Eukaryotic small subunit ribosomal RNA: a 480-nucleotide part of an RNA from Otus sunia. A search with the family's covariance model found it, with a score of 1083 bits. Rfam 15.1 lists 75,755 matches to the family in 2,556 species. Pairs were carried over by alignment from the consensus structure, which is taken from published work.
[Rfam]
RNA sequence: UGAUGGAAGGGCACCACCAGGAGUUGGAGCCUGUGGCUUAAUUUGAUUCAACAUGGGAAACCUCACCUGGCUUGGACAUGGACAGCAUUGAGAGAUUGAAAGCUCUUCCUCAGUUCUGUGGGUGGUGGUGCAUGGCCCUUCUUGGUGGAGCAAUUUGGUUAAUUCUGAUAAUAAAUGAGAUUCUGUCAUGUUACACAGCACCCGAGCAGUGGGCAUCCAACUUCUUACAGGGACGAGUGGUGUUCAGUCACCCAAGAUUGAGCAAUAACAGAUCUGUGAUGCCCUUAAAUGUCCAGGACCGCAUGUGUGCUACGCUGGCUGGCUCAGCUUGUGCCUACCCUCUGCCAGCAGGUGUGGGUAACCCACUGAACCCCAUUCAUGGUGGGGAUUGGGGAUUGCAAUUCUUGCCCACGAAUGAGGAAUUCCCAGUAAGUGCGGGUCAUAAGCUUGUGUUGAUGUAGUCCCUGCCCUUUGUAUACA
Numbered sequence: 001u002g003a004u005g006g007a008a009g010g011g012c013a014c015c016a017c018c019a020g021g022a023g024u025u026g027g028a029g030c031c032u033g034u035g036g037c038u039u040a041a042u043u044u045g046a047u048u049c050a051a052c053a054u055g056g057g058a059a060a061c062c063u064c065a066c067c068u069g070g071c072u073u074g075g076a077c078a079u080g081g082a083c084a085g086c087a088u089u090g091a092g093a094g095a096u097u098g099a100a101a102g103c104u105c106u107u108c109c110u111c112a113g114u115u116c117u118g119u120g121g122g123u124g125g126u127g128g129u130g131c132a133u134g135g136c137c138c139u140u141c142u143u144g145g146u147g148g149a150g151c152a153a154u155u156u157g158g159u160u161a162a163u164u165c166u167g168a169u170a171a172u173a174a175a176u177g178a179g180a181u182u183c184u185g186u187c188a189u190g191u192u193a194c195a196c197a198g199c200a201c202c203c204g205a206g207c208a209g210u211g212g213g214c215a216u217c218c219a220a221c222u223u224c225u226u227a228c229a230g231g232g233a234c235g236a237g238u239g240g241u242g243u244u245c246a247g248u249c250a251c252c253c254a255a256g257a258u259u260g261a262g263c264a265a266u267a268a269c270a271g272a273u274c275u276g277u278g279a280u281g282c283c284c285u286u287a288a289a290u291g292u293c294c295a296g297g298a299c300c301g302c303a304u305g306u307g308u309g310c311u312a313c314g315c316u317g318g319c320u321g322g323c324u325c326a327g328c329u330u331g332u333g334c335c336u337a338c339c340c341u342c343u344g345c346c347a348g349c350a351g352g353u354g355u356g357g358g359u360a361a362c363c364c365a366c367u368g369a370a371c372c373c374c375a376u377u378c379a380u381g382g383u384g385g386g387g388a389u390u391g392g393g394g395a396u397u398g399c400a401a402u403u404c405u406u407g408c409c410c411a412c413g414a415a416u417g418a419g420g421a422a423u424u425c426c427c428a429g430u431a432a433g434u435g436c437g438g439g440u441c442a443u444a445a446g447c448u449u450g451u452g453u454u455g456a457u458g459u460a461g462u463c464c465c466u467g468c469c470c471u472u473u474g475u476a477u478a479c480a
Stems, first nucleotide, its partner, number of pairs: 001478002003475003007472007016462002020426005026313001028311003032307004036302002042057004066297005072291001077120005090109001092107004124285002127283004133279001134277001135273001137271001139268002145172002147156003157166002182261002185258001187231001189229001192227002197222002235253001237251005317378002320375003329365001331363001339358002343354004385416001390411004395406001432454008
Dot-bracket structure: (((((.(((((((..((..(((((.(.(((.((((((....((((........))))........(((((.(....(((((........(.((((........)))).)......)))))...((.((((..(((.(.((....(((((....)))((......))....)).........((.(.(.(..((...((......................))...)).).)...(.(((((.....))))).)....).)).....))..).)...).))))))).....).)))))...)).)))).))).)...((.(((......(.(.......((..((((....))))..))....).).......))).))......(....((((.(..........).))))....).....))))).....((((((((.......))))))))......))...)))))))))).))..